[Rfam]
RNA: Glycine riboswitch aptamer
Organism: Saccharopolyspora gloriosae
RNA sequence: AGAUCCCGGGCGGGAGAGACCCCGCGCCGACGGGGCGCCGAAGGAGCAAACACUCCCUGCAAACUCUCAGGCACCCAUGACCGCUCGGGCGAG
Numbered sequence: 001a002g003a004u005c006c007c008g009g010g011c012g013g014g015a016g017a018g019a020c021c022c023c024g025c026g027c028c029g030a031c032g033g034g035g036c037g038c039c040g041a042a043g044g045a046g047c048a049a050a051c052a053c054u055c056c057c058u059g060c061a062a063a064c065u066c067u068c069a070g071g072c073a074c075c076c077a078u079g080a081c082c083g084c085u086c087g088g089g090c091g092a093g
Stems, first nucleotide, its partner, number of pairs: 006088008020035004037072003040068002044066003051059001